[Rfam]
RNA: Molybdenum/Tungsten riboswitch aptamer (Moco RNA motif)
RNA sequence: AAUUACAUAUUUCUCCGAGUUCAGUAAGCCUGCAGACUUUAAUGUUAUGGCCUUGAACCGUCAGGGUAUAUUGGGAAACCGGUAUGCCUCCCGUUGCGGAAAGGAGAAGGCGUGUCAGUAUUA
Numbered sequence: 001a002a003u004u005a006c007a008u009a010u011u012u013c014u015c016c017g018a019g020u021u022c023a024g025u026a027a028g029c030c031u032g033c034a035g036a037c038u039u040u041a042a043u044g045u046u047a048u049g050g051c052c053u054u055g056a057a058c059c060g061u062c063a064g065g066g067u068a069u070a071u072u073g074g075g076a077a078a079c080c081g082g083u084a085u086g087c088c089u090c091c092c093g094u095u096g097c098g099g100a101a102a103g104g105a106g107a108a109g110g111c112g113u114g115u116c117a118g119u120a121u122u123a
Base pairs, nucleotide, nucleotide: 003117006114011108012107013106014105015104016103019058020057021056022055023054024053028051029050030049035046036045037044064089065088066087067086068085069084070083071082072081073080074079090099091098